This 53-nucleotide sequence from Pseudoduganella namucuonensis belongs to the Rfam family "nhaA-I RNA". From the family's description: Acidobacteria, Alphaproteobacteria, Betaproteobacteria and Gammaproteobacteria, Verrucomicrobia, cand. division NC10. NCBI's taxonomy places the organism under Bacteria, Pseudomonadati, Pseudomonadota, Betaproteobacteria, Pseudoduganella.
[Rfam]
RNA sequence: GGGUGAUCAUACCGUCCAGGUAUGACAGGAUUUGCGAUGGUCGGGCCGCCACG
Number, nucleotide and partner (000 for none) at each position: 001g000002g000003g000004u000005g026006a000007u000008c024009a023010u022011a021012c020013c000014g000015u000016c000017c000018a000019g000020g012021u011022a010023u009024g008025a000026c005027a000028g000029g000030a000031u000032u000033u000034g000035c053036g052037a000038u051039g050040g049041u048042c000043g000044g000045g000046c000047c000048g041049c040050c039051a038052c036053g035